[Rfam]
RNA sequence: GUAUUCGCAAUGAACGCGUAUCAGUAGUGGCUUGAGUCCCGGAAGCGGCAGAGAGUCGGUGGGAGGUGCAAACCGGCCCGGCCAGGCGGCGAAGUACAGCGCGGGAGCGAAUUCUGCGCCGCAUUAUCUCUUUCUGCGGAGCGGACGGCUUAUGAUGAUUAUGUACAAAUAGGCCGUUAUCCUUGUGAGCGAAGGACUUCUGUCCUUAAGUAAGGGUGGUACCGCGAAUAAACUCGUCCCUUUG
Numbered sequence: 001g002u003a004u005u006c007g008c009a010a011u012g013a014a015c016g017c018g019u020a021u022c023a024g025u026a027g028u029g030g031c032u033u034g035a036g037u038c039c040c041g042g043a044a045g046c047g048g049c050a051g052a053g054a055g056u057c058g059g060u061g062g063g064a065g066g067u068g069c070a071a072a073c074c075g076g077c078c079c080g081g082c083c084a085g086g087c088g089g090c091g092a093a094g095u096a097c098a099g100c101g102c103g104g105g106a107g108c109g110a111a112u113u114c115u116g117c118g119c120c121g122c123a124u125u126a127u128c129u130c131u132u133u134c135u136g137c138g139g140a141g142c143g144g145a146c147g148g149c150u151u152a153u154g155a156u157g158a159u160u161a162u163g164u165a166c167a168a169a170u171a172g173g174c175c176g177u178u179a180u181c182c183u184u185g186u187g188a189g190c191g192a193a194g195g196a197c198u199u200c201u202g203u204c205c206u207u208a209a210g211u212a213a214g215g216g217u218g219g220u221a222c223c224g225c226g227a228a229u230a231a232a233c234u235c236g237u238c239c240c241u242u243u244g
Stems, first nucleotide, its partner, number of pairs: 007108002015103004027090002030087003040080003055077006114144004119139005146176008192207006213241004224237004